[Rfam]
The record is a 129-nucleotide sequence from Actinophytocola xanthii, which matches "TPP riboswitch aptamer (THI element)" in Rfam.
Lineage of the source: Bacteria > Bacillati > Pseudonocardiales > Pseudonocardiaceae > Actinophytocola.
RNA sequence: UCAACAUCGCGCGGGAGCUCGCGCCACAGCGGGCUGAGAGGGCAAAUGGCGUCCACAUGGACCCGGCUUUGCCGACCGCCUGAACCUGACCGGGUAAUGCCGGCGUAGGGAGGCUGUUCAUGACCGCUC
Numbered sequence: 001u002c003a004a005c006a007u008c009g010c011g012c013g014g015g016a017g018c019u020c021g022c023g024c025c026a027c028a029g030c031g032g033g034c035u036g037a038g039a040g041g042g043c044a045a046a047u048g049g050c051g052u053c054c055a056c057a058u059g060g061a062c063c064c065g066g067c068u069u070u071g072c073c074g075a076c077c078g079c080c081u082g083a084a085c086c087u088g089a090c091c092g093g094g095u096a097a098u099g100c101c102g103g104c105g106u107a108g109g110g111a112g113g114c115u116g117u118u119c120a121u122g123a124c125c126g127c128u129c
Stems, first nucleotide, its partner, number of pairs: 006117002009114002011079004017034005041073005085109004090103004